[Rfam]
RNA: THF (Tetrahydrofolate) riboswitch aptamer
RNA sequence: AUCAGAGUAGAAAAUGAAGCGUUAAGUGUCAGAGGGAUGGGAUGUUGCCCUUUGGACGAAGAGUCAGUAGGCUCGCGGUUUUGUUUUCGCAUUCGCUGCA
Numbered sequence: 001a002u003c004a005g006a007g008u009a010g011a012a013a014a015u016g017a018a019g020c021g022u023u024a025a026g027u028g029u030c031a032g033a034g035g036g037a038u039g040g041g042a043u044g045u046u047g048c049c050c051u052u053u054g055g056a057c058g059a060a061g062a063g064u065c066a067g068u069a070g071g072c073u074c075g076c077g078g079u080u081u082u083g084u085u086u087u088c089g090c091a092u093u094c095g096c097u098g099c100a
Stems, first nucleotide, its partner, number of pairs: 003098003010088010020077003026057002029055008040094005061074004